This 110-nucleotide RNA sequence from Cypripedium japonicum belongs to the Rfam family "Plastid-psbA-1 3UTR RNA". Its Rfam clan is "Plastid-psbA 3UTR RNA clan". The base pairs follow the family's consensus structure, which was predicted with LocARNA. It is one of the family's seed sequences. NCBI's taxonomy places the organism under Eukaryota, Tracheophyta, Spermatophyta, Mesangiospermae, Cypripedium.
[Rfam]
RNA sequence: GUAGAAGCUCCAUCUACAAAUGGAUAAUACUUUUGUAUACAUUUAUAUGUAUAUGAAUUUUUGAAGGUAGCAAUCCCCCCAUAUCUUGUAAGAUAUGGGGGGAUUGCUAC
Numbered sequence: 001g002u003a004g005a006a007g008c009u010c011c012a013u014c015u016a017c018a019a020a021u022g023g024a025u026a027a028u029a030c031u032u033u034u035g036u037a038u039a040c041a042u043u044u045a046u047a048u049g050u051a052u053a054u055g056a057a058u059u060u061u062u063g064a065a066g067g068u069a070g071c072a073a074u075c076c077c078c079c080c081a082u083a084u085c086u087u088g089u090a091a092g093a094u095a096u097g098g099g100g101g102g103a104u105u106g107c108u109a110c
Stems, first nucleotide, its partner, number of pairs: 009024005067110010079098003083094004